RNA sequence: GCCAUGCUCUCGUCUUCGACGGCCAGCCGAAUGCCGAUCUGGCGCGCUUCCCCGGCGCCAGAUCGGCAUUCGGCUGGCCGUCGAAGACGAGGCGGCUCGUUGU
Numbered sequence: 001g002c003c004a005u006g007c008u009c010u011c012g013u014c015u016u017c018g019a020c021g022g023c024c025a026g027c028c029g030a031a032u033g034c035c036g037a038u039c040u041g042g043c044g045c046g047c048u049u050c051c052c053c054g055g056c057g058c059c060a061g062a063u064c065g066g067c068a069u070u071c072g073g074c075u076g077g078c079c080g081u082c083g084a085a086g087a088c089g090a091g092g093c094g095g096c097u098c099g100u101u102g103u
Stems, first nucleotide, its partner, number of pairs: 010090007018082002021079025

The record is a 103-nucleotide RNA from Segniliparus rotundus, which matches "mraW RNA" in Rfam. A search with the family's covariance model found it, with a score of 71 bits. The family has 45 seed sequences and 851 matches in Rfam 15.1. It is annotated as a cis-regulatory element. The family's consensus secondary structure is taken from published work.